This 110-nucleotide sequence from Glycine max belongs to the Rfam family "MIR1520 microRNA precursor family". The source organism's lineage runs through Eukaryota, Spermatophyta, Fabales, Phaseoleae and Glycine subgen. Soja.
[Rfam]
RNA sequence: CUUUUAUGGGACGUUGAUCGUCAUGUGUCACAAUUUUAUUAGAGGUUGACGUUAAUUAAGUGCAUCAAAUUAACAUCUAAUAAAAUCGUGACAUGUAACAAUCAACGUCC
Numbered sequence: 001c002u003u004u005u006a007u008g009g010g011a012c013g014u015u016g017a018u019c020g021u022c023a024u025g026u027g028u029c030a031c032a033a034u035u036u037u038a039u040u041a042g043a044g045g046u047u048g049a050c051g052u053u054a055a056u057u058a059a060g061u062g063c064a065u066c067a068a069a070u071u072a073a074c075a076u077c078u079a080a081u082a083a084a085a086u087c088g089u090g091a092c093a094u095g096u097a098a099c100a101a102u103c104a105a106c107g108u109c110c
Base pairs, nucleotide, nucleotide: 020099021098023096025094026093029090030089031088033086034085035084036083038081039080040079